[Rfam]
RNA: tRNA
Organism: Allacma fusca
RNA sequence: GGCGCCAUGGCUUAGUUGGUUAAAGCGCCUGUCUUGUAAACAGGAGAUCCCGAGUUCGAAUCUCGGUGGUGCCU
Numbered sequence: 001g002g003c004g005c006c007a008u009g010g011c012u013u014a015g016u017u018g019g020u021u022a023a024a025g026c027g028c029c030u031g032u033c034u035u036g037u038a039a040a041c042a043g044g045a046g047a048u049c050c051c052g053a054g055u056u057c058g059a060a061u062c063u064c065g066g067u068g069g070u071g072c073c074u
Base pairs, nucleotide, nucleotide: 001073002072003071004070005069006068007067010026011025012024013023028044029043030042031041032040050066051065052064053063054062